Rfam assigns this 265-nucleotide RNA sequence from Medicago truncatula to the family "MIR2655 microRNA precursor family". Its family is annotated with miRNA-mediated post-transcriptional gene silencing and RISC complex in the Gene Ontology. Rfam 15.1 lists 892 matches to the family in 5 species.
RNA sequence: CCCUUAAGUAAUAAAAGGUCCGUUUAGGUCCCUUAACUUUAUUUAAAGUAUCAGUUUGAUCCUUUCUGAUAAUUUAAUUAAAAAAACAUUAAGUUUAGGGACCAAACUAAUAUUAAUUAAAUAAGUUAAGGGAGAAAACUAAUACCAAUUAAAUAAGAUAAGAGACCAAAAUUUAACUUUUAUUUGAAUUAAAUUAAUAGAAAGGACCAAACCGACACUUUCACUAAAGUUAAGGGAGCAAAACGGACCUUUUAUUACUUAUGGA
Number, nucleotide and partner (000 for none) at each position: 001c000002c264003c263004u000005u261006a260007a259008g258009u000010a000011a000012u000013a000014a000015a000016a000017g000018g000019u000020c000021c000022g000023u243024u242025u241026a000027g239028g000029u237030c000031c235032c234033u233034u232035a231036a230037c229038u228039u227040u226041a225042u000043u223044u000045a221046a220047a219048g000049u000050a000051u000052c000053a000054g000055u000056u000057u000058g000059a000060u000061c000062c000063u000064u000065u000066c000067u000068g000069a000070u000071a000072a000073u000074u000075u000076a000077a000078u000079u000080a000081a000082a000083a000084a000085a000086a000087c000088a000089u000090u000091a000092a000093g000094u000095u000096u000097a000098g000099g000100g000101a000102c000103c000104a000105a000106a000107c000108u000109a000110a000111u000112a000113u000114u000115a000116a000117u000118u000119a000120a000121a000122u000123a000124a000125g000126u000127u000128a000129a000130g000131g000132g000133a000134g000135a000136a000137a000138a000139c000140u000141a000142a000143u000144a000145c000146c000147a000148a000149u000150u000151a000152a000153a000154u000155a000156a000157g000158a000159u000160a000161a000162g000163a000164g000165a000166c000167c000168a000169a000170a000171a000172u000173u000174u000175a000176a000177c000178u000179u000180u000181u000182a000183u000184u000185u000186g000187a000188a000189u000190u000191a000192a000193a000194u000195u000196a000197a000198u000199a000200g000201a000202a000203a000204g000205g000206a000207c000208c000209a000210a000211a000212c000213c000214g000215a000216c000217a000218c000219u047220u046221u045222c000223a043224c000225u041226a040227a039228a038229g037230u036231u035232a034233a033234g032235g031236g000237a029238g000239c027240a000241a025242a024243a023244c000245g000246g000247a000248c000249c000250u000251u000252u000253u000254a000255u000256u000257a000258c008259u007260u006261a005262u000263g003264g002265a000